[Rfam]
RNA sequence: AUCACGCCGUCUGGAGAGCCGCCACGCCACGUGGCGCACCGAAGGAGCAAACCCGCCGCGCAUGCUGCGGGUGAAACUCUCAGGUACCAAGGACAGGGGGAGCGGC
Numbered sequence: 001a002u003c004a005c006g007c008c009g010u011c012u013g014g015a016g017a018g019c020c021g022c023c024a025c026g027c028c029a030c031g032u033g034g035c036g037c038a039c040c041g042a043a044g045g046a047g048c049a050a051a052c053c054c055g056c057c058g059c060g061c062a063u064g065c066u067g068c069g070g071g072u073g074a075a076a077c078u079c080u081c082a083g084g085u086a087c088c089a090a091g092g093a094c095a096g097g098g099g100g101a102g103c104g105g106c
Stems, first nucleotide, its partner, number of pairs: 007100002010097004020036004038085003041081002045079003051072006